[Rfam]
Description:
The record is a 129-nucleotide RNA from Arcanobacterium bovis, which matches "FMN riboswitch aptamer (RFN element)" in Rfam. The base pairs follow the family's consensus structure, which is taken from published work. Lineage of the source: Bacteria > Actinomycetota > Actinomycetes > Actinomycetaceae > Arcanobacterium.
RNA sequence: GAAGUGCUCCAGGGUCAGUGAAAGUCUGAACCGGCGGUGAUAGUCCGCGACCCGUAUAUCGUCAGAUAUACGGUUGAAAAGGUGAAAUUCCUUUACCGACGGUAAAAGUCCGGAUGGGAGGCGCACGAU
Numbered sequence: 001g002a003a004g005u006g007c008u009c010c011a012g013g014g015u016c017a018g019u020g021a022a023a024g025u026c027u028g029a030a031c032c033g034g035c036g037g038u039g040a041u042a043g044u045c046c047g048c049g050a051c052c053c054g055u056a057u058a059u060c061g062u063c064a065g066a067u068a069u070a071c072g073g074u075u076g077a078a079a080a081g082g083u084g085a086a087a088u089u090c091c092u093u094u095a096c097c098g099a100c101g102g103u104a105a106a107a108g109u110c111c112g113g114a115u116g117g118g119a120g121g122c123g124c125a126c127g128a129u
Base pairs, nucleotide, nucleotide: 004126005125006124007123009121010120016028017027018026030109031108032098033097034048035047036046037045043096044095052073053072078094079093080092081091082090100112101111102110